This 78-nucleotide RNA from Salarias fasciatus belongs to the Rfam family "mir-96 microRNA precursor family". The family's consensus secondary structure was predicted with RNAalifold. A search with the family's covariance model found it, with a score of 79 bits.

Nucleotides: 078
Stems, first nucleotide, its partner, number of pairs: 004075005010069008019061006027053005
Number, partner (000 for none) and nucleotide at each position: 001000u002000u003000g004075c005074c006073u007072g008071u009000u010069u011068u012067g013066g014065c015064a016063c017062u018000a019061g020060c021059a022058c023057a024056u025000u026000u027053u028052u029051g030050c031049u032000a033000u034000g035000u036000c037000u038000c039000u040000c041000c042000c043000a044000g045000u046000u047000u048000g049031a050030g051029c052028a053027a054000u055000c056024a057023u058022g059021u060020g061019u062017a063016g064015u065014g066013c067012c068011a069010a070000u071008a072007u073006g074005g075004g076000a077000c078000g